[Rfam]
Bacterial small signal recognition particle RNA: a 97-nucleotide sequence from Moraxella macacae.
The literature on the family includes a 2003 paper in Nucleic Acids Res by Rosenblad et al., "SRPDB: Signal Recognition Particle Database".
Pairs were carried over by alignment from the consensus structure, which is taken from published work.
RNA sequence: CAUUGGUAGCUUCGCAACUUGUAGCUAUGAACCCCGCCAGGACCGGAAGGUAGCAACGGUAGUAGUUUUCAAGUGUGCCGAAGAUGUGCUAAUGGGG
Numbered sequence: 001c002a003u004u005g006g007u008a009g010c011u012u013c014g015c016a017a018c019u020u021g022u023a024g025c026u027a028u029g030a031a032c033c034c035c036g037c038c039a040g041g042a043c044c045g046g047a048a049g050g051u052a053g054c055a056a057c058g059g060u061a062g063u064a065g066u067u068u069u070c071a072a073g074u075g076u077g078c079c080g081a082a083g084a085u086g087u088g089c090u091a092a093u094g095g096g097g
Stems, first nucleotide, its partner, number of pairs: 004091005010083005015075001017074005023067006034059003042051003